[Rfam]
RNA sequence: AGCCUCCACGCGGCGCUAUGUCACCCAACUCCCCCAGGGCAGGAAUGCAGCAAGGGUAAGUGGCCUCUGACGGGUGUGUGGAGGUUUUCUU
Numbered sequence: 001a002g003c004c005u006c007c008a009c010g011c012g013g014c015g016c017u018a019u020g021u022c023a024c025c026c027a028a029c030u031c032c033c034c035c036a037g038g039g040c041a042g043g044a045a046u047g048c049a050g051c052a053a054g055g056g057u058a059a060g061u062g063g064c065c066u067c068u069g070a071c072g073g074g075u076g077u078g079u080g081g082a083g084g085u086u087u088u089c090u091u
Stems, first nucleotide, its partner, number of pairs: 001086010011074001014072002017069002020064005031056003039048003
Rfam assigns this 91-nucleotide sequence from Bifidobacterium longum to the family "Bacterial small signal recognition particle RNA". The literature on the family includes a 2003 paper in Nucleic Acids Res by Rosenblad et al., "SRPDB: Signal Recognition Particle Database". The base pairs follow the family's consensus structure, which is taken from published work. Rfam classes the family as a non-coding RNA gene. Lineage of the source: Bacteria > Actinomycetota > Bifidobacteriales > Bifidobacteriaceae > Bifidobacterium longum.